[Rfam]
RNA sequence: CCGUCUACCCAGUGUUUAGACUAUCUGUUCAGGACUCCCAAAUUGUACAGUAGUCUGCACAUUGGUUAGGCUGG
Numbered sequence: 001c002c003g004u005c006u007a008c009c010c011a012g013u014g015u016u017u018a019g020a021c022u023a024u025c026u027g028u029u030c031a032g033g034a035c036u037c038c039c040a041a042a043u044u045g046u047a048c049a050g051u052a053g054u055c056u057g058c059a060c061a062u063u064g065g066u067u068a069g070g071c072u073g074g
Stems, first nucleotide, its partner, number of pairs: 009065007017057007025050004030045002
mir-199 microRNA precursor family: a 74-nucleotide RNA sequence from Sus scrofa. On this family, see Mourelatos et al., Genes Dev 2002: "miRNPs: a novel class of ribonucleoproteins containing numerous microRNAs". Rfam's curators write: This family consists of the microRNA (miRNA) precursor mir-199 which appears to be specific to humans. Animal miRNAs are transcribed as ~70nt precursors and subsequently processed by the Dicer enzyme to give a ~22nt product. In this case the mature sequence comes from the 3' arm of the precursor.